Source information: Rfam assigns this 96-nucleotide RNA from Podarcis muralis to the family "Small nucleolar SNORD12/SNORD106". Rfam links the family to the GO terms RNA processing and nucleolus. The literature on the family includes a 2001 paper in EMBO J by Huttenhofer et al., "RNomics: an experimental approach that identifies 201 candidates for novel, small, non-messenger RNAs in mouse". The source organism's lineage runs through Eukaryota, Sarcopterygii, Sauropsida, Lacertidae and Podarcis. It is annotated as a C/D-box small nucleolar RNA.
[Rfam]
RNA sequence: GCUGAUGUUUGUGAUGACCAACACUUUUUUCCCCAUCAGAGCGACAGUGCUUGAUUUGUUGCUGCUUUAGCCAGAUCUUUGUCUGACGACAUCAGC
Numbered sequence: 001g002c003u004g005a006u007g008u009u010u011g012u013g014a015u016g017a018c019c020a021a022c023a024c025u026u027u028u029u030u031c032c033c034c035a036u037c038a039g040a041g042c043g044a045c046a047g048u049g050c051u052u053g054a055u056u057u058g059u060u061g062c063u064g065c066u067u068u069a070g071c072c073a074g075a076u077c078u079u080u081g082u083c084u085g086a087c088g089a090c091a092u093c094a095g096c
Base pairs, nucleotide, nucleotide: 001096002095003094004093005092006091007090008089009088